[Rfam]
RNA: Actinobacteria sRNA Ms_IGR-5
RNA sequence: ACACGAGAAGGGAGGUGGUUCGGCAGAUGUAUGCACACCGGACGCGUGAGGUGGCUGCGGGCUAGCGGCCCGUCGCUUCACUCAGUGCAGCGCCGGACCAGCGCACGAGAGCUGUGCGCAGCCGGCCAAUCCCAAGCAGUCACCCGACCCGCGGGCCGCCGGUUCGUCCGACCGGCCCCCGGCGCUCCCGGCGCCGGGGAAAUGGCCCGCGGGUCGUCUGCG
Numbered sequence: 001a002c003a004c005g006a007g008a009a010g011g012g013a014g015g016u017g018g019u020u021c022g023g024c025a026g027a028u029g030u031a032u033g034c035a036c037a038c039c040g041g042a043c044g045c046g047u048g049a050g051g052u053g054g055c056u057g058c059g060g061g062c063u064a065g066c067g068g069c070c071c072g073u074c075g076c077u078u079c080a081c082u083c084a085g086u087g088c089a090g091c092g093c094c095g096g097a098c099c100a101g102c103g104c105a106c107g108a109g110a111g112c113u114g115u116g117c118g119c120a121g122c123c124g125g126c127c128a129a130u131c132c133c134a135a136g137c138a139g140u141c142a143c144c145c146g147a148c149c150c151g152c153g154g155g156c157c158g159c160c161g162g163u164u165c166g167u168c169c170g171a172c173c174g175g176c177c178c179c180c181g182g183c184g185c186u187c188c189c190g191g192c193g194c195c196g197g198g199g200a201a202a203u204g205g206c207c208c209g210c211g212g213g214u215c216g217u218c219u220g221c222g
Stems, first nucleotide, its partner, number of pairs: 015058005060127004065122002068119002071116001073114001075112004145216013158176006
Dot-bracket structure: ..............(((((..................................))))).((((.((.((.(.(.((((..............................)))).).).)).)).)))).................(((((((((((((((((((.......))))))...........................)))))))))))))......